[Rfam]
RNA sequence: ACCGCCGUGAGGCGGGGUCUGAAGGAAGCGUGGAGCAAAGGUGCGAGCCGAUGAACAAAAACCGGAUAUGAGGCGCCAGCGUUGGACGAGCGGGCAACUGGUCGCGAAGUCCAUAUCCAUCAAGGACGCAAAGCGUAGAUCCGGCGGUUGUGCACCGAAAGCGAUUGAGC
Numbered sequence: 001a002c003c004g005c006c007g008u009g010a011g012g013c014g015g016g017g018u019c020u021g022a023a024g025g026a027a028g029c030g031u032g033g034a035g036c037a038a039a040g041g042u043g044c045g046a047g048c049c050g051a052u053g054a055a056c057a058a059a060a061a062c063c064g065g066a067u068a069u070g071a072g073g074c075g076c077c078a079g080c081g082u083u084g085g086a087c088g089a090g091c092g093g094g095c096a097a098c099u100g101g102u103c104g105c106g107a108a109g110u111c112c113a114u115a116u117c118c119a120u121c122a123a124g125g126a127c128g129c130a131a132a133g134c135g136u137a138g139a140u141c142c143g144g145c146g147g148u149u150g151u152g153c154a155c156c157g158a159a160a161g162c163g164a165u166u167g168a169g170c
Stems, first nucleotide, its partner, number of pairs: 002015005028170002031167002035162002040156006046149005062144006073136003079129005084112004090105004
Overview: Group II catalytic intron D1-D4-3: a 170-nucleotide RNA from Candidatus Acidiferrum panamense. A reference for the family is Bonen and Vogel (2001), "The ins and outs of group II introns", Trends Genet. The source organism's lineage runs through Bacteria, Pseudomonadati, Acidobacteriota, Terriglobia and Candidatus Acidiferrum. From the family's description: Group II introns are found in rRNA, tRNA and mRNA of organelles in fungi, plants and protists, and also in mRNA in bacteria.